[Rfam]
This 97-nucleotide RNA from Sugiyamaella lignohabitans belongs to the Rfam family "Small nucleolar RNA Z13/snr52". The source organism's lineage runs through Eukaryota, Ascomycota, saccharomyceta, Dipodascales and Sugiyamaella. The family's consensus secondary structure was predicted with PFOLD.

RNA sequence: AUUUUCUUUAUGAUGAAAAAUUUUCGGAUGUAAAUCAUUUCUGCUGAGGCGCAAAACCGUGCGGAUAUUUUCCGUUGCCUUCCUUCUGAUCAAUAGA
Numbered sequence: 001a002u003u004u005u006c007u008u009u010a011u012g013a014u015g016a017a018a019a020a021u022u023u024u025c026g027g028a029u030g031u032a033a034a035u036c037a038u039u040u041c042u043g044c045u046g047a048g049g050c051g052c053a054a055a056a057c058c059g060u061g062c063g064g065a066u067a068u069u070u071u072c073c074g075u076u077g078c079c080u081u082c083c084u085u086c087u088g089a090u091c092a093a094u095a096g097a
Stems, first nucleotide, its partner, number of pairs: 003096002025074004
About this RNA:
The match comes from Rfam's covariance-model search (80 bits). The family's RNA type in Rfam is C/D-box small nucleolar RNA.